Annotation:
A member of the RNA family "Rhizobiales sRNA Atu_C8" from Paramesorhizobium leguminum, 122 nucleotides long. The source organism's lineage runs through Bacteria, Pseudomonadati, Alphaproteobacteria, Hyphomicrobiales and Paramesorhizobium. The family's consensus secondary structure was predicted with CMfinder. The match comes from Rfam's covariance-model search (102 bits).
RNA sequence: AGCCAUGAACAAGCUUCUUAUCGUAGUACGAGCGCGCAUGGGCAGGGUGGUGUAACCAUCCGGCGAAAGCUCCCAUGCGCGACACACAGGCUCCCUCGGGGGGCCUUUUUUAUUGCCUUAAA
Numbered sequence: 001a002g003c004c005a006u007g008a009a010c011a012a013g014c015u016u017c018u019u020a021u022c023g024u025a026g027u028a029c030g031a032g033c034g035c036g037c038a039u040g041g042g043c044a045g046g047g048u049g050g051u052g053u054a055a056c057c058a059u060c061c062g063g064c065g066a067a068a069g070c071u072c073c074c075a076u077g078c079g080c081g082a083c084a085c086a087c088a089g090g091c092u093c094c095c096u097c098g099g100g101g102g103g104c105c106u107u108u109u110u111u112a113u114u115g116c117c118u119u120a121a122a
Base pairs, nucleotide, nucleotide: 030117033081034080035079036078037077038076039075040074041073042072045061046060047059048058049057050056063070064069086107088106089105090104091103092102093101094100